[Rfam]
RNA sequence: ACAUCAAGAAGGGAGGUGAUCCGAGCAGAUGAAGUCUCUUCGGACCGAUGAGGUGGUCGCGCGCUAGCGCGUCCUGAUCUUCCCGUCGCCGGGCGCCCAUCAGGGCCGUCCGACGGCGACCGGGACACGGUGGCGAGUCUUUCGCGACCACCGGAGCCCGCGGGGCCGUGCCCUCGUCCAGCACGGCAGGAGCAUCGCUCCACCCCGCGGGCUCUACCGCG
Numbered sequence: 001a002c003a004u005c006a007a008g009a010a011g012g013g014a015g016g017u018g019a020u021c022c023g024a025g026c027a028g029a030u031g032a033a034g035u036c037u038c039u040u041c042g043g044a045c046c047g048a049u050g051a052g053g054u055g056g057u058c059g060c061g062c063g064c065u066a067g068c069g070c071g072u073c074c075u076g077a078u079c080u081u082c083c084c085g086u087c088g089c090c091g092g093g094c095g096c097c098c099a100u101c102a103g104g105g106c107c108g109u110c111c112g113a114c115g116g117c118g119a120c121c122g123g124g125a126c127a128c129g130g131u132g133g134c135g136a137g138u139c140u141u142u143c144g145c146g147a148c149c150a151c152c153g154g155a156g157c158c159c160g161c162g163g164g165g166c167c168g169u170g171c172c173c174u175c176g177u178c179c180a181g182c183a184c185g186g187c188a189g190g191a192g193c194a195u196c197g198c199u200c201c202a203c204c205c206c207g208c209g210g211g212c213u214c215u216a217c218c219g220c221g
Stems, first nucleotide, its partner, number of pairs: 016060005062135005068129002071126002074123003153215013166186006
A member of the RNA family "Actinobacteria sRNA Ms_IGR-5" from Xylanimonas ulmi, 221 nucleotides long. NCBI's taxonomy places the organism under Bacteria, Actinomycetota, Actinomycetes, Promicromonosporaceae, Xylanimonas. The match comes from Rfam's covariance-model search (51 bits). By type it is a small RNA.